RNA: MIR2619 microRNA precursor family
Organism: Medicago truncatula
RNA sequence: AAACAGUCUCCUAUGUUUUGAUUUUUUGGCAGUUUUGGACCCCAAGGCAAAAAAAAUAAAAAAGAUUGACACGUAGCACCUCACUUAGGGUGCCACGUCAGCGUUGACCGAGUCAACAAUGGACUUGGGGUCCAAAACUGCCAAAGAAUCAAAACAUAGGGGACUGUUU
Numbered sequence: 001a002a003a004c005a006g007u008c009u010c011c012u013a014u015g016u017u018u019u020g021a022u023u024u025u026u027u028g029g030c031a032g033u034u035u036u037g038g039a040c041c042c043c044a045a046g047g048c049a050a051a052a053a054a055a056a057u058a059a060a061a062a063a064g065a066u067u068g069a070c071a072c073g074u075a076g077c078a079c080c081u082c083a084c085u086u087a088g089g090g091u092g093c094c095a096c097g098u099c100a101g102c103g104u105u106g107a108c109c110g111a112g113u114c115a116a117c118a119a120u121g122g123a124c125u126u127g128g129g130g131u132c133c134a135a136a137a138c139u140g141c142c143a144a145a146g147a148a149u150c151a152a153a154a155c156a157u158a159g160g161g162g163a164c165u166g167u168u169u
Stems, first nucleotide, its partner, number of pairs: 001169002004166005012158034071098002074095001076093005